[Rfam]
RNA: Small nucleolar RNA SNORA14
Organism: Esox lucius
RNA sequence: AUGCAUUCUCAUAAACCCCCUAGUUGCUAAUGUUAGCCUCUGGGACAAGGAAGGAUGCUACAUAAAACUAGAGAUCCAAAGCUGGGCUCAUGUGUCAUUGGCUCUUGGUUAUUUCAGCUCUAGGACAUUU
Numbered sequence: 001a002u003g004c005a006u007u008c009u010c011a012u013a014a015a016c017c018c019c020c021u022a023g024u025u026g027c028u029a030a031u032g033u034u035a036g037c038c039u040c041u042g043g044g045a046c047a048a049g050g051a052a053g054g055a056u057g058c059u060a061c062a063u064a065a066a067a068c069u070a071g072a073g074a075u076c077c078a079a080a081g082c083u084g085g086g087c088u089c090a091u092g093u094g095u096c097a098u099u100g101g102c103u104c105u106u107g108g109u110u111a112u113u114u115c116a117g118c119u120c121u122a123g124g125a126c127a128u129u130u
Stems, first nucleotide, its partner, number of pairs: 003058004010050001012048001019044005026037002062130001064128001068123005080110007089101001092098001